The family of this 207-nucleotide RNA is "raiA RNA". The family's consensus secondary structure is taken from published work. It is annotated as a riboswitch. It is one of the family's seed sequences.

Nucleotides: 207
Base pairs, nucleotide, nucleotide: 004203007201008200009199012198013197014196015192016191017190018189019188028178029177030176031041034089035088036087037086038085039084050083051082058075060073062071081185102171103170104169105168106167107118108117109116110115122164123163124162125161131156132155138148139147140146
Number, partner (000 for none) and nucleotide at each position: 001000c002000g003000a004203g005000g006000c007201a008200a009199g010000g011000u012198c013197u014196g015192u016191g017190g018189u019188u020000g021000a022000a023000a024000g025000u026000c027000g028178a029177u030176g031041c032000c033000a034089g035088a036087c037086g038085c039084g040000g041031g042000c043000g044000a045000a046000g047000c048000g049000a050083u051082c052000c053000a054000c055000a056000u057000a058075a059000g060073u061000c062071g063000g064000c065000a066000a067000a068000a069000u070000g071062c072000c073060g074000a075058u076000g077000a078000a079000c080000a081185u082051g083050g084039c085038g086037c087036g088035u089034c090000c091000u092000a093000g094000g095000a096000g097000u098000a099000a100000g101000u102171c103170c104169a105168a106167c107118c108117g109116g110115a111000g112000c113000a114000a115110u116109c117108c118107g119000a120000g121000a122164g123163g124162g125161g126000u127000a128000g129000u130000a131156g132155u133000g134000g135000g136000g137000a138148c139147g140146g141000a142000g143000a144000c145000a146140c147139c148138g149000u150000u151000a152000g153000g154000a155132g156131c157000g158000a159000a160000c161125c162124u163123u164122c165000c166000a167106g168105u169104u170103g171102g172000c173000g174000a175000g176030u177029g178028u179000g180000g181000g182000g183000g184000c185081a186000a187000a188019a189018a190017c191016c192015a193000g194000g195000u196014c197013a198012g199009c200008u201007u202000a203004c204000c205000a206000a207000a